[Rfam]
The record is a 416-nucleotide sequence from Pelagicoccus albus, which matches "Bacterial RNase P class A" in Rfam. The family's RNA type in Rfam is ribozyme. The organism belongs to Pelagicoccus, within Bacteria.
RNA sequence: UUUCGGGGCCGCGCGUUCGCUCCGUUGUUCUUUAUAGGAAUCUCCGGGGAGGAAAGUCCGGACGCCGUAGGGCAGGGUUCCUCGCGAAAGCGAGGGAGGGCCGCUUCAAGGCGGUUCGACGGCCAGUGCCACAGAGAAUAUACCGCCUGGCUCGGUUUCGCUUCGGCGUCAUCGAGGCAGGUAAGGGUGAAAAGGUGGGGUAAGGGCCCACCGCGAGUCGAGUAAUUGGCUCGGCAAGGUAAACCCAAUCCGGCGCAAGGUUAAAUAGGGGAUCUGGGCUGCCCGUCCGUUAAAGGUCCCGGGUAAACCGCGCCACUUCAUUGGAAGGGGCUCUCGCUUCGGCGGGAAGCAGAUAAAUGAACGCGAUCUUAGCUUCGGCUAAGAUACAGGAUCCGGCUUACAGGCUCCGAAACUAG
Numbered sequence: 001u002u003u004c005g006g007g008g009c010c011g012c013g014c015g016u017u018c019g020c021u022c023c024g025u026u027g028u029u030c031u032u033u034a035u036a037g038g039a040a041u042c043u044c045c046g047g048g049g050a051g052g053a054a055a056g057u058c059c060g061g062a063c064g065c066c067g068u069a070g071g072g073c074a075g076g077g078u079u080c081c082u083c084g085c086g087a088a089a090g091c092g093a094g095g096g097a098g099g100g101c102c103g104c105u106u107c108a109a110g111g112c113g114g115u116u117c118g119a120c121g122g123c124c125a126g127u128g129c130c131a132c133a134g135a136g137a138a139u140a141u142a143c144c145g146c147c148u149g150g151c152u153c154g155g156u157u158u159c160g161c162u163u164c165g166g167c168g169u170c171a172u173c174g175a176g177g178c179a180g181g182u183a184a185g186g187g188u189g190a191a192a193a194g195g196u197g198g199g200g201u202a203a204g205g206g207c208c209c210a211c212c213g214c215g216a217g218u219c220g221a222g223u224a225a226u227u228g229g230c231u232c233g234g235c236a237a238g239g240u241a242a243a244c245c246c247a248a249u250c251c252g253g254c255g256c257a258a259g260g261u262u263a264a265a266u267a268g269g270g271g272a273u274c275u276g277g278g279c280u281g282c283c284c285g286u287c288c289g290u291u292a293a294a295g296g297u298c299c300c301g302g303g304u305a306a307a308c309c310g311c312g313c314c315a316c317u318u319c320a321u322u323g324g325a326a327g328g329g330g331c332u333c334u335c336g337c338u339u340c341g342g343c344g345g346g347a348a349g350c351a352g353a354u355a356a357a358u359g360a361a362c363g364c365g366a367u368c369u370u371a372g373c374u375u376c377g378g379c380u381a382a383g384a385u386a387c388a389g390g391a392u393c394c395g396g397c398u399u400a401c402a403g404g405c406u407c408c409g410a411a412a413c414u415a416g
Stems, first nucleotide, its partner, number of pairs: 001412010011401001012365007020049005027042001054399003058396005063255004070288004075251005080095005096120001098117008121246002126244002128240003143186002145182005151176006194212006213235001214233008259309004269300006280292002283289001